About this RNA
Shown here is a 161-nucleotide RNA sequence from Silurus meridionalis, a member of the family "U1 spliceosomal RNA". It is annotated as a spliceosomal small nuclear RNA. Gene Ontology terms of the family: mRNA 5'-splice site recognition, pre-mRNA 5'-splice site binding and U1 snRNP.
[Rfam]
RNA sequence: AUACUUACCUGGCAGGGGCAAUACCAUGAUCAAGACGGUGGUUUGCCCAAAGCGAGGCUCAGCCAUUGCACUCAGGCUGUGCUGACCUUUGCGAAUUCCCCAAAUGUGGAAUCUCGACUGCAUAAUUUCUGAUAGUGGGGGACUGUGUUCGCUCUCCCUGU
Numbered sequence: 001a002u003a004c005u006u007a008c009c010u011g012g013c014a015g016g017g018g019c020a021a022u023a024c025c026a027u028g029a030u031c032a033a034g035a036c037g038g039u040g041g042u043u044u045g046c047c048c049a050a051a052g053c054g055a056g057g058c059u060c061a062g063c064c065a066u067u068g069c070a071c072u073c074a075g076g077c078u079g080u081g082c083u084g085a086c087c088u089u090u091g092c093g094a095a096u097u098c099c100c101c102a103a104a105u106g107u108g109g110a111a112u113c114u115c116g117a118c119u120g121c122a123u124a125a126u127u128u129c130u131g132a133u134a135g136u137g138g139g140g141g142a143c144u145g146u147g148u149u150c151g152c153u154c155u156c157c158c159u160g161u
Stems, first nucleotide, its partner, number of pairs: 012121004016048006023042005049090004054086001056083003060079005092116003095112003099109002136160005142155001145152002
Notes: The literature on the family includes a 1997 paper in Nucleic Acids Res by Zwieb, "The uRNA database". A search with the family's covariance model found it, with a score of 152 bits. U1 is a small nuclear RNA (snRNA) component of the spliceosome (involved in pre-mRNA splicing). Its 5' end forms complementary base pairs with the 5' splice junction, thus defining the 5' donor site of an intron. There are significant differences in sequence and secondary structure between metazoan and yeast U1 snRNAs, the latter being much longer (568 nucleotides as compared to 164 nucleotides in human). Nevertheless, secondary structure predictions suggest that all U1 snRNAs share a 'common core' consisting of helices I, II, the proximal region of III, and IV. This family does not contain the larger yeast sequences.